[Rfam]
Background
This 94-nucleotide RNA from Thiocapsa marina belongs to the Rfam family "Group II catalytic intron D1-D4-1".

RNA sequence: CUUACCCGGGGAGAUCUCGGGUCCGAGAGGAUCCGAGAAGUCAGCAGAGGCCGUACUAGCGAAGAAGCCCGGUAACGCGGGUGGAGCGAAGGGC
Numbered sequence: 001c002u003u004a005c006c007c008g009g010g011g012a013g014a015u016c017u018c019g020g021g022u023c024c025g026a027g028a029g030g031a032u033c034c035g036a037g038a039a040g041u042c043a044g045c046a047g048a049g050g051c052c053g054u055a056c057u058a059g060c061g062a063a064g065a066a067g068c069c070c071g072g073u074a075a076c077g078c079g080g081g082u083g084g085a086g087c088g089a090a091g092g093g094c
Stems, first nucleotide, its partner, number of pairs: 001027002004022007041048002050094003059087002068081003
A reference for the family is Bonen and Vogel (2001), "The ins and outs of group II introns", Trends Genet.
About the family: Group II introns are found in rRNA, tRNA and mRNA of organelles in fungi, plants and protists, and also in mRNA in bacteria.
Its family is annotated with Group II intron splicing in the Gene Ontology.